[Rfam]
RNA sequence: UUGCGCCACUACCUUCCAACGGAUCGUCCGGUGCGUACCGCCGGGGAGGAGCGAGAGUCA
Numbered sequence: 001u002u003g004c005g006c007c008a009c010u011a012c013c014u015u016c017c018a019a020c021g022g023a024u025c026g027u028c029c030g031g032u033g034c035g036u037a038c039c040g041c042c043g044g045g046g047a048g049g050a051g052c053g054a055g056a057g058u059c060a
Stems, first nucleotide, its partner, number of pairs: 010051001012049005028044005
RNA: msiK RNA